[Rfam]
Description: The record is a 107-nucleotide RNA from Neoroseomonas lacus, which matches "SAM-I/IV (S-adenosyl methionine) riboswitch aptamer" in Rfam. The family's consensus secondary structure is taken from published work. It scores 55 bits against the family's covariance model. The family is grouped with related families in Rfam's "SAM clan".
RNA sequence: CGCGCGCAUCAAGAGUUGGGCCGUGCCCAACGCCAACCUGCCUUCCCGGGCAAGGUGGCGCCUCCGCGAGGGGGGAUGCGGCCGCUCCGGCAACCAAACGGGAAGCG
Dot-bracket structure: .....(((((....(.(.((......)).))(((..((((((.[[[[[))).))).)))...............))))).((((...)))).......]]]]]....